[Rfam]
RNA sequence: GCUGCCGCUCACACCCGCUGCUGGUGCCUGGUGCUGGUCCCAAUUACUCGGUGCCAUCAGUGGGUGUGAGCAGCAGCUG
Numbered sequence: 001g002c003u004g005c006c007g008c009u010c011a012c013a014c015c016c017g018c019u020g021c022u023g024g025u026g027c028c029u030g031g032u033g034c035u036g037g038u039c040c041c042a043a044u045u046a047c048u049c050g051g052u053g054c055c056a057u058c059a060g061u062g063g064g065u066g067u068g069a070g071c072a073g074c075a076g077c078u079g
Stems, first nucleotide, its partner, number of pairs: 004074002007071014022056007